[Rfam]
RNA sequence: AAGAAAUUAGCUCAGUUGGUAGAGCGUUCGUUUUACACACGAAGGUCAGGUGUUCAAAUCACCUAUUUCUUA
Numbered sequence: 001a002a003g004a005a006a007u008u009a010g011c012u013c014a015g016u017u018g019g020u021a022g023a024g025c026g027u028u029c030g031u032u033u034u035a036c037a038c039a040c041g042a043a044g045g046u047c048a049g050g051u052g053u054u055c056a057a058a059u060c061a062c063c064u065a066u067u068u069c070u071u072a
Base pairs, nucleotide, nucleotide: 001071002070003069004068005067006066007065010025011024012023013022027043028042029041030040031039048064049063050062051061052060
RNA: tRNA